[Rfam]
RNA sequence: CGAUGUAGGAAGCAUGGUAAUGUGCACGAAAAUUAAGCAACUUUAGGUCGUCAUGUCUGCUCCCACUGAUAUUACUAAUGAUUUGGGGGCCUGGACUAGACCUACAUUA
Numbered sequence: 001c002g003a004u005g006u007a008g009g010a011a012g013c014a015u016g017g018u019a020a021u022g023u024g025c026a027c028g029a030a031a032a033u034u035a036a037g038c039a040a041c042u043u044u045a046g047g048u049c050g051u052c053a054u055g056u057c058u059g060c061u062c063c064c065a066c067u068g069a070u071a072u073u074a075c076u077a078a079u080g081a082u083u084u085g086g087g088g089g090c091c092u093g094g095a096c097u098a099g100a101c102c103u104a105c106a107u108u109a
Base pairs, nucleotide, nucleotide: 012025013024014023015022045092046091047090048089049088055082056081057080
Shown here is a 109-nucleotide sequence from Artemisia annua, a member of the family "Small nucleolar RNA snoR100". For this family Rfam cites "Experimental RNomics: identification of 140 candidates for small non-messenger RNAs in the plant Arabidopsis thaliana" (Marker et al., Curr Biol, 2002). The source organism's lineage runs through Eukaryota, Streptophytina, Tracheophyta, Anthemideae and Artemisia. Its family is annotated with nucleolus and RNA processing in the Gene Ontology.